[Rfam]
Ribosomal protein L20 leader: a 118-nucleotide sequence from Vulcanibacillus modesticaldus. The match comes from Rfam's covariance-model search (74 bits). By type it is a cis-regulatory leader. Pairs were carried over by alignment from the consensus structure, which was predicted with CMfinder. Rfam links the family to the GO term regulation of gene expression.
Nucleotides: 118
Base pairs, nucleotide, nucleotide: 011026012025013024014023015022016021028052029051030050034047035046036045037044038043085105086104087103088102089101090100091099092098
Number, partner (000 for none) and nucleotide at each position: 001000a002000u003000a004000c005000u006000a007000a008000a009000g010000c011026a012025g013024a014023a015022g016021c017000g018000c019000c020000c021016g022015c023014u024013u025012c026011u027000c028052a029051c030050c031000u032000g033000a034047u035046c036045g037044a038043c039000u040000u041000a042000a043038g044037u045036u046035g047034g048000u049000g050030g051029g052028u053000u054000a055000a056000a057000c058000g059000a060000u061000u062000a063000u064000a065000u066000u067000u068000u069000g070000u071000u072000u073000a074000u075000g076000u077000a078000g079000u080000a081000u082000a083000a084000g085105u086104g087103u088102g089101g090100g091099c092098g093000c094000g095000u096000a097000u098092c099091g100090u101089c102088u103087a104086c105085a106000c107000u108000u109000u110000u111000u112000u113000a114000u115000u116000u117000g118000c
This family is a putative r-protein leader autoregulatory structure found in B. subtilis and other low-GC Gram-positive bacteria. It is located in the 5' untranslated regions of mRNAs encoding initiation factor 3 followed by ribosomal proteins L35 and L20 (infC-rpmI-rplT). A Rho-independent transcription terminator structure that is probably involved in regulation is included at the 3' end.